[Rfam]
RNA sequence: ACGGAGGAUUAAGAAAGUAAAUCUUUAAAAGUUUUAUGUAUUCUACUGAUACACUCCUCCUACAUAAAAUGGUAGAGGAACAGGACUGUUUACAAGUUUGUACACAGGACCUACUAAAUCUGCCAACACUU
Numbered sequence: 001a002c003g004g005a006g007g008a009u010u011a012a013g014a015a016a017g018u019a020a021a022u023c024u025u026u027a028a029a030a031g032u033u034u035u036a037u038g039u040a041u042u043c044u045a046c047u048g049a050u051a052c053a054c055u056c057c058u059c060c061u062a063c064a065u066a067a068a069a070u071g072g073u074a075g076a077g078g079a080a081c082a083g084g085a086c087u088g089u090u091u092a093c094a095a096g097u098u099u100g101u102a103c104a105c106a107g108g109a110c111c112u113a114c115u116a117a118a119u120c121u122g123c124c125a126a127c128a129c130u131u
Stems, first nucleotide, its partner, number of pairs: 003060006010051002018045002021042001025036001027034002071124006082112003086107003
Dot-bracket structure: ..((((((.((......((.(...(.((....)).).....).))....))...))))))..........((((((.....(((.(((................)))..)))......)))))).......
Rfam assigns this 131-nucleotide sequence from Xenopus laevis to the family "Small Cajal body specific RNA 15". Rfam links the family to the GO terms nucleolus, RNA processing and Cajal body. Clan: SCARNA4 clan. On this family, see Darzacq et al., EMBO J 2002: "Cajal body-specific small nuclear RNAs: a novel class of 2'-O-methylation and pseudouridylation guide RNAs". About the family: scaRNAs are a specific class of small nuclear RNAs which localise to the Cajal bodies and guide the modification of RNA polymerase II transcribed spliceosomal RNAs U1, U2, U4, U5 and U12. ACA45 belongs to the H/ACA box class of guide RNAs as it has the predicted hairpin-hinge-hairpin-tail structure, the conserved H/ACA-box motifs and is found associated with GAR1. A search with the family's covariance model found it, with a score of 66 bits.